[Rfam]
RNA sequence: UCUGACCAACAAGCUUUUUGCUCGUCUUAUACGUGAGAGUCAGGUAUAACCCGGGCCAAAAGCUCACCCGUCAAAGG
Numbered sequence: 001u002c003u004g005a006c007c008a009a010c011a012a013g014c015u016u017u018u019u020g021c022u023c024g025u026c027u028u029a030u031a032c033g034u035g036a037g038a039g040u041c042a043g044g045u046a047u048a049a050c051c052c053g054g055g056c057c058a059a060a061a062g063c064u065c066a067c068c069c070g071u072c073a074a075a076g077g
Base pairs, nucleotide, nucleotide: 003073004072005071006070012064013063014062015061016060017059018058020056023053024052027049028048029047030046031045032044
RNA: mir-208 microRNA precursor family